[Rfam]
RNA sequence: GGAAGCUGAUGGGAUCUGGUGGUCUUCGCGGUCUUCAAAACCGUUGGUUGCACAAUUCGCAACGGCAGGUUCGAUUCCUGCCUCUUCC
Numbered sequence: 001g002g003a004a005g006c007u008g009a010u011g012g013g014a015u016c017u018g019g020u021g022g023u024c025u026u027c028g029c030g031g032u033c034u035u036c037a038a039a040a041c042c043g044u045u046g047g048u049u050g051c052a053c054a055a056u057u058c059g060c061a062a063c064g065g066c067a068g069g070u071u072c073g074a075u076u077c078c079u080g081c082c083u084c085u086u087c088c
Stems, first nucleotide, its partner, number of pairs: 001088005008081001011026006028044005047063005066080004
The family of this 88-nucleotide RNA sequence from Treponema vincentii is "Selenocysteine transfer RNA".
Rfam links the family to the GO term triplet codon-amino acid adaptor activity.
Taxonomically the source falls in Treponema vincentii (Bacteria, Pseudomonadati, Spirochaetota, Treponematales).
The match comes from Rfam's covariance-model search (65 bits).
The literature on the family includes a 2000 paper in FEBS Lett by Mizutani and Goto, "Eukaryotic selenocysteine tRNA has the 9/4 secondary structure".
The base pairs follow the family's consensus structure, which is taken from published work.